[Rfam]
Rfam assigns this 127-nucleotide sequence from Heliothis virescens to the family "Small nucleolar RNA psi18S-841/snoR66". Its Rfam clan is "SNORA28 clan". By type it is an H/ACA-box small nucleolar RNA. A search with the family's covariance model found it, with a score of 54 bits. From the family's description: psi18S-841 is a member of the H/ACA class of snoRNA. This family is responsible for guiding the modification of uridine 841 in Drosophila 18S rRNA to pseudouridine. Pairs were carried over by alignment from the consensus structure, which was predicted with RNAfold.
RNA sequence: UGCAAGGGCACUCUGUGUUAUUCAUUCCAUAUGAUAAUUACAAUUUGUUACCUUGCUAUAUCAAGUCUACCAAAUCCUAUUCCAUGUAGCUUGCAUGUGGCUACCUGGUCAUAGUGGUGGAUACAAU
Numbered sequence: 001u002g003c004a005a006g007g008g009c010a011c012u013c014u015g016u017g018u019u020a021u022u023c024a025u026u027c028c029a030u031a032u033g034a035u036a037a038u039u040a041c042a043a044u045u046u047g048u049u050a051c052c053u054u055g056c057u058a059u060a061u062c063a064a065g066u067c068u069a070c071c072a073a074a075u076c077c078u079a080u081u082c083c084a085u086g087u088a089g090c091u092u093g094c095a096u097g098u099g100g101c102u103a104c105c106u107g108g109u110c111a112u113a114g115u116g117g118u119g120g121a122u123a124c125a126a127u
Stems, first nucleotide, its partner, number of pairs: 002056006010048002014042003017038006024030001064127001067120006075113001082108001084106001086104006